About this RNA
microRNA mir-251 microRNA precursor family: a 61-nucleotide RNA sequence from Caenorhabditis brenneri.
RNA sequence: AUAAGUAGUAGUGCCGCAGGUAACCGAUUUCAAUGGUUUACCUACUGCCUCCUGCUUAGAA
Dot-bracket structure: .(((((((.((.((.(.(((((................))))).).)))).)))))))...